[Rfam]
RNA: c-di-AMP riboswitch aptamer (ydaO/yuaA leader)
RNA sequence: UCAAUGUGAUCGCUGAAUUUCCUGGUAACAGGAAAACGGGGGGAACCGCUGUGAAUACCGAUAGGUGGGAAAAGUCGAACCUAAUCGGAGGGUAACAGACCAUUAUGGGGUGAAUCCUUACAGGUCCGGGCUGGUGAAGAAUACCGGCAAGGGUGGGUAAGGUAGGGCUACUCUCAGUCCGAAUCCGUCAGCUAACCUCGUAAGCACAUGAGAGAGGGUAC
Numbered sequence: 001u002c003a004a005u006g007u008g009a010u011c012g013c014u015g016a017a018u019u020u021c022c023u024g025g026u027a028a029c030a031g032g033a034a035a036a037c038g039g040g041g042g043g044a045a046c047c048g049c050u051g052u053g054a055a056u057a058c059c060g061a062u063a064g065g066u067g068g069g070a071a072a073a074g075u076c077g078a079a080c081c082u083a084a085u086c087g088g089a090g091g092g093u094a095a096c097a098g099a100c101c102a103u104u105a106u107g108g109g110g111u112g113a114a115u116c117c118u119u120a121c122a123g124g125u126c127c128g129g130g131c132u133g134g135u136g137a138a139g140a141a142u143a144c145c146g147g148c149a150a151g152g153g154u155g156g157g158u159a160a161g162g163u164a165g166g167g168c169u170a171c172u173c174u175c176a177g178u179c180c181g182a183a184u185c186c187g188u189c190a191g192c193u194a195a196c197c198u199c200g201u202a203a204g205c206a207c208a209u210g211a212g213a214g215a216g217g218g219u220a221c
Base pairs, nucleotide, nucleotide: 012205013204014203018035019034020033021032022031023030024029036201037200038199039198040197041196047107048106108186109185110184116162117161118160119159120158121157165180166179167178168177